[Rfam]
RNA sequence: AAAGGUGGCCGGGUGAUCGCGGCACGUGGAACCCUCCCACACGUUGGGGGAGGCCAGGUGCGGAGGAAAGUCCGGACUCCACAGGGCACGGUGGUUGCUAACAGCAACCCGGGGCGACCCGCGGGCUAGUGCCACAGAAAACAAACCGCCGCGCGCCACCCACGCCUUCGGGCGCACGGUAGCAGCGCGGUAAGGGUGAAAAGGUGCGGUAAGAGCGCACCAGCACCGCAGGUGACUGCGGUGGCUUGGUAAACCCCACUGGGAGCAAGGUCAAGACGUUGCACACGGAUGUAAGCCAUCCAGCAGUGCGACGCAGUUCCAGAGCUGCCCGCUCGUUUUUUAGGGACAGGUAGACCGCUUGAGACCUCCAGCAAUGGAGUGUCCAGAUGGAUGAUCACCUCGCGCCGCCCACCCCACGGGGACUUAAGGCGGUGUACGACAGAAUCCGGCUCACAGGCCACCUUUGCGC
Numbered sequence: 001a002a003a004g005g006u007g008g009c010c011g012g013g014u015g016a017u018c019g020c021g022g023c024a025c026g027u028g029g030a031a032c033c034c035u036c037c038c039a040c041a042c043g044u045u046g047g048g049g050g051a052g053g054c055c056a057g058g059u060g061c062g063g064a065g066g067a068a069a070g071u072c073c074g075g076a077c078u079c080c081a082c083a084g085g086g087c088a089c090g091g092u093g094g095u096u097g098c099u100a101a102c103a104g105c106a107a108c109c110c111g112g113g114g115c116g117a118c119c120c121g122c123g124g125g126c127u128a129g130u131g132c133c134a135c136a137g138a139a140a141a142c143a144a145a146c147c148g149c150c151g152c153g154c155g156c157c158a159c160c161c162a163c164g165c166c167u168u169c170g171g172g173c174g175c176a177c178g179g180u181a182g183c184a185g186c187g188c189g190g191u192a193a194g195g196g197u198g199a200a201a202a203g204g205u206g207c208g209g210u211a212a213g214a215g216c217g218c219a220c221c222a223g224c225a226c227c228g229c230a231g232g233u234g235a236c237u238g239c240g241g242u243g244g245c246u247u248g249g250u251a252a253a254c255c256c257c258a259c260u261g262g263g264a265g266c267a268a269g270g271u272c273a274a275g276a277c278g279u280u281g282c283a284c285a286c287g288g289a290u291g292u293a294a295g296c297c298a299u300c301c302a303g304c305a306g307u308g309c310g311a312c313g314c315a316g317u318u319c320c321a322g323a324g325c326u327g328c329c330c331g332c333u334c335g336u337u338u339u340u341u342a343g344g345g346a347c348a349g350g351u352a353g354a355c356c357g358c359u360u361g362a363g364a365c366c367u368c369c370a371g372c373a374a375u376g377g378a379g380u381g382u383c384c385a386g387a388u389g390g391a392u393g394a395u396c397a398c399c400u401c402g403c404g405c406c407g408c409c410c411a412c413c414c415c416a417c418g419g420g421g422a423c424u425u426a427a428g429g430c431g432g433u434g435u436a437c438g439a440c441a442g443a444a445u446c447c448g449g450c451u452c453a454c455a456g457g458c459c460a461c462c463u464u465u466g467c468g469c
Stems, first nucleotide, its partner, number of pairs: 001465010011454001012399007020063001022061004027056002069451002072449005077265004084330004089261005094108005109123001110121004124256002129254002131250003146195002148191007203221006223245001224243008269356004278347003282343001322334004363382001366379005